[Rfam]
RNA sequence: CUACCGACAUCGAAAGGUGUCGGGAUGGGACGGCAGGAGUCAGCAGAGGCCGUAGUAGCCGGACCGACCGGCGAAGGGC
Number, nucleotide and partner (000 for none) at each position: 001c027002u000003a000004c023005c022006g021007a020008c019009a018010u017011c016012g000013a000014a000015a000016g011017g010018u009019g008020u007021c006022g005023g004024g000025a000026u000027g001028g000029g000030a000031c000032g000033g000034c000035a000036g000037g000038a000039g000040u047041c046042a000043g000044c000045a000046g041047a040048g000049g079050c078051c077052g000053u000054a000055g000056u000057a000058g072059c071060c070061g069062g068063a000064c000065c000066g000067a000068c062069c061070g060071g059072c058073g000074a000075a000076g000077g051078g050079c049

The record is a 79-nucleotide sequence from Mesorhizobium sp. L-8-10, which matches "Group II catalytic intron D1-D4-1" in Rfam. Group II introns are found in rRNA, tRNA and mRNA of organelles in fungi, plants and protists, and also in mRNA in bacteria.